[Rfam]
RNA sequence: AAGUGCUUACAGCUCUUUUUGAAUUUGUCUAGCAGGUCUUCCGGUUUUCACCAGAAUACCCUU
Numbered sequence: 001a002a003g004u005g006c007u008u009a010c011a012g013c014u015c016u017u018u019u020u021g022a023a024u025u026u027g028u029c030u031a032g033c034a035g036g037u038c039u040u041c042c043g044g045u046u047u048u049c050a051c052c053a054g055a056a057u058a059c060c061c062u063u
Base pairs, nucleotide, nucleotide: 035060036059037058039056040055041054043052044051045050
RNA: U7 small nuclear RNA
Organism: Molossus molossus